The record is a 388-nucleotide RNA from Aureispira anguillae, which matches "Bacterial RNase P class A" in Rfam. Rfam's curators write: Ribonuclease P (RNase P) is a ubiquitous endoribonuclease, found in archaea, bacteria and eukarya as well as chloroplasts and mitochondria. Its best characterised activity is the generation of mature 5'-ends of tRNAs by cleaving the 5'-leader elements of precursor-tRNAs. Cellular RNase Ps are ribonucleoproteins. RNA from bacterial RNase Ps retains its catalytic activity in the absence of the protein subunit, i.e. it is a ribozyme. Isolated eukaryotic and archaeal RNase P RNA has not been shown to retain its catalytic function, but is still essential for the catalytic activity of the holoenzyme. Although the archaeal and eukaryotic holoenzyme s have a much greater protein content than the bacterial ones, the RNA cores from all the three lineages are homologous -- helices corresponding to P1, P2, P3, P4, and P10/11 are common to all cellular RNase P RNAs. Yet, there is considerable sequence variation, particularly among the eukaryotic RNAs. Identified in Yersinia as Ysr151/RnpB. By type it is a ribozyme. Lineage of the source: Bacteria > Pseudomonadati > Bacteroidota > Saprospiraceae > Aureispira.
RNA sequence: ACUGCAAGCUGCUCUAUCGCGGGGUUGAUUGUAUCAAACACGAGGAAAGUCCGAACAACGCAGAGCAUCACACCAUCUAACGGAUGGGGUUUCAAAUUUAUUUGGAAUACAGAAAGUGUCGCAGAAAAUAACCGCCCUAAAUUUAUUUGGGGUAAGGGUGAAAACGUGCGGUAAGAGCGCACGGCUAUUGAUGGCAACAUCAAUAGGGGAUAAACCUUGUGAGUUGAAAUGCCAUGUAUACCAGUACGAAUUCUACGGAAUUCAUAGGGUUGCUCGCUCUAGCUGGAGGGUAGGCAGAUAGAACCAACAGGUGACUGUUGGUCUAGAUAAAUGAUAGAGGCUCUACUUCAGUGGAGUACAGGAUUCGGCUUAUAGGCUUGUAGUUGCU
Numbered sequence: 001a002c003u004g005c006a007a008g009c010u011g012c013u014c015u016a017u018c019g020c021g022g023g024g025u026u027g028a029u030u031g032u033a034u035c036a037a038a039c040a041c042g043a044g045g046a047a048a049g050u051c052c053g054a055a056c057a058a059c060g061c062a063g064a065g066c067a068u069c070a071c072a073c074c075a076u077c078u079a080a081c082g083g084a085u086g087g088g089g090u091u092u093c094a095a096a097u098u099u100a101u102u103u104g105g106a107a108u109a110c111a112g113a114a115a116g117u118g119u120c121g122c123a124g125a126a127a128a129u130a131a132c133c134g135c136c137c138u139a140a141a142u143u144u145a146u147u148u149g150g151g152g153u154a155a156g157g158g159u160g161a162a163a164a165c166g167u168g169c170g171g172u173a174a175g176a177g178c179g180c181a182c183g184g185c186u187a188u189u190g191a192u193g194g195c196a197a198c199a200u201c202a203a204u205a206g207g208g209g210a211u212a213a214a215c216c217u218u219g220u221g222a223g224u225u226g227a228a229a230u231g232c233c234a235u236g237u238a239u240a241c242c243a244g245u246a247c248g249a250a251u252u253c254u255a256c257g258g259a260a261u262u263c264a265u266a267g268g269g270u271u272g273c274u275c276g277c278u279c280u281a282g283c284u285g286g287a288g289g290g291u292a293g294g295c296a297g298a299u300a301g302a303a304c305c306a307a308c309a310g311g312u313g314a315c316u317g318u319u320g321g322u323c324u325a326g327a328u329a330a331a332u333g334a335u336a337g338a339g340g341c342u343c344u345a346c347u348u349c350a351g352u353g354g355a356g357u358a359c360a361g362g363a364u365u366c367g368g369c370u371u372a373u374a375g376g377c378u379u380g381u382a383g384u385u386g387c388u
Stems, first nucleotide, its partner, number of pairs: 001384010011373001012339007020042002023039001025037004047371003051368005056226004063275004068222005073087005088110001089108008111217002116215002118211003132157002134153008165183006185207001186205008230296004241286005266280005303322008